[Rfam]
Nucleotides: 102
Stems, first nucleotide, its partner, number of pairs: 002097006012086004017082004027070003
Number, partner (000 for none) and nucleotide at each position: 001000g002097g003096g004095a005094c006093g007092g008000c009000u010000u011000a012086g013085c014084c015083g016000u017082g018081g019080g020079g021000a022000u023000a024000c025000a026000u027070c028069g029068u030000u031000u032000g033000u034000u035000u036000a037000a038000a039000a040000c041000c042000u043000u044000u045000c046000a047000a048000u049000u050000g051000g052000a053000u054000g055000g056000a057000a058000u059000g060000u061000g062000a063000g064000c065000u066000u067000a068029a069028c070027g071000c072000u073000u074000a075000g076000u077000u078000u079020c080019u081018c082017c083015u084014g085013g086012c087000g088000c089000a090000g091000u092007c093006c094005g095004u096003u097002c098000c099000u100000u101000u102000u

Background:
This 102-nucleotide RNA from Pomacea canaliculata belongs to the Rfam family "Vault RNA". The match comes from Rfam's covariance-model search (43 bits). Pairs were carried over by alignment from the consensus structure, which is taken from published work. From the family's description: This family of RNAs are found as part of the enigmatic vault ribonucleoprotein complex. The complex consists of a major vault protein (MVP), two minor vault proteins (VPARP and TEP1), and several small untranslated RNA molecules. It has been suggested that the vault complex is involved in drug resistance. The source organism's lineage runs through Eukaryota, Metazoa, Mollusca, Ampullarioidea and Pomacea.